This 108-nucleotide RNA sequence from Parasulfuritortus cantonensis belongs to the Rfam family "Guanidine-I riboswitch aptamer". Its family is annotated with regulation of gene expression in the Gene Ontology. NCBI's taxonomy places the organism under Bacteria, Pseudomonadati, Betaproteobacteria, Thiobacillaceae, Parasulfuritortus.
RNA sequence: CGAAGUGGUCGCUAGGGUUCCGAUCCGCCUGUUCCGGCGGAUGCCUGGUCCGAGAGCGACCGGUCCCGCCUGUGCGGGGCUACACGGAGGGAUAAAAGCCCGGGAGGA
Numbered sequence: 001c002g003a004a005g006u007g008g009u010c011g012c013u014a015g016g017g018u019u020c021c022g023a024u025c026c027g028c029c030u031g032u033u034c035c036g037g038c039g040g041a042u043g044c045c046u047g048g049u050c051c052g053a054g055a056g057c058g059a060c061c062g063g064u065c066c067c068g069c070c071u072g073u074g075c076g077g078g079g080c081u082a083c084a085c086g087g088a089g090g091g092a093u094a095a096a097a098g099c100c101c102g103g104g105a106g107g108a
Stems, first nucleotide, its partner, number of pairs: 007061006015051002020048002022045001023042006062081008083103001085106001089101003
Dot-bracket structure: ......((((((..((...(((((((((........))))))..).)).))....))))))((((((((....)))))))).(.[...(((.......))).)..]..

Annotation: A search with the family's covariance model found it, with a score of 96 bits. Rfam 15.1 lists 1,509 matches to the family in 1,281 species.